[Rfam]
A member of the RNA family "mir-1421 microRNA precursor family" from Ornithorhynchus anatinus, 74 nucleotides long. Its family is annotated with miRNA-mediated post-transcriptional gene silencing and RISC complex in the Gene Ontology. The organism belongs to Ornithorhynchus, within Eukaryota. Pairs were carried over by alignment from the consensus structure, which was predicted with RNAalifold.
RNA sequence: GGGUGUGAAGUGGUCACUUGAGUUGCAGUGGGGUAGUGGAACACGCUGUAUCCCAUGUGACCGCUCUACACAGU
Numbered sequence: 001g002g003g004u005g006u007g008a009a010g011u012g013g014u015c016a017c018u019u020g021a022g023u024u025g026c027a028g029u030g031g032g033g034u035a036g037u038g039g040a041a042c043a044c045g046c047u048g049u050a051u052c053c054c055a056u057g058u059g060a061c062c063g064c065u066c067u068a069c070a071c072a073g074u
Stems, first nucleotide, its partner, number of pairs: 003071005009065009019055002024050004